[Rfam]
RNA: SAM (S-adenosyl methionine) riboswitch aptamer
RNA sequence: GGUCAAGAGAUGACACGCGAAGGCUCGGCUGGUGUCACGGCAACCCCGACGACAACGACUGGGUGCCCCGAGAAAGAGACCCGGCUGCCGCACCGCGGCAGCAAGCGUUCGUC
Numbered sequence: 001g002g003u004c005a006a007g008a009g010a011u012g013a014c015a016c017g018c019g020a021a022g023g024c025u026c027g028g029c030u031g032g033u034g035u036c037a038c039g040g041c042a043a044c045c046c047c048g049a050c051g052a053c054a055a056c057g058a059c060u061g062g063g064u065g066c067c068c069c070g071a072g073a074a075a076g077a078g079a080c081c082c083g084g085c086u087g088c089c090g091c092a093c094c095g096c097g098g099c100a101g102c103a104a105g106c107g108u109u110c111g112u113c
Stems, first nucleotide, its partner, number of pairs: 001081004009038001011037006021030002039067003044063003050057001084102008